[Rfam]
RNA sequence: AAAGAAAAUAGAGGUUGCAAUCAACAAGAGUCACUAACCAAAUCGGCAGAUUAUGCGGUUAGUAAAAGGGGCGAUUGCCGAAAUGCACCGAUUGGCAAAUCGGGGUGUUGGUCCAGGUAUUAAGAGUAACUGGACUGUCGUAAUCAAUGAUUACGGGGAGCUAUCAAAUAC
Numbered sequence: 001a002a003a004g005a006a007a008a009u010a011g012a013g014g015u016u017g018c019a020a021u022c023a024a025c026a027a028g029a030g031u032c033a034c035u036a037a038c039c040a041a042a043u044c045g046g047c048a049g050a051u052u053a054u055g056c057g058g059u060u061a062g063u064a065a066a067a068g069g070g071g072c073g074a075u076u077g078c079c080g081a082a083a084u085g086c087a088c089c090g091a092u093u094g095g096c097a098a099a100u101c102g103g104g105g106u107g108u109u110g111g112u113c114c115a116g117g118u119a120u121u122a123a124g125a126g127u128a129a130c131u132g133g134a135c136u137g138u139c140g141u142a143a144u145c146a147a148u149g150a151u152u153a154c155g156g157g158g159a160g161c162u163a164u165c166a167a168a169u170a171c
Base pairs, nucleotide, nucleotide: 008164009163010162011161017078018077019076020075021074022073025070033063034062035061036060037059038058039057082109083108084107085106086105088103089102090101091100092099093098110136111135112134113133114132115131116130118128119127120126138156139155140154141153142152143151144150
RNA: Lysine riboswitch aptamer
Organism: Weissella viridescens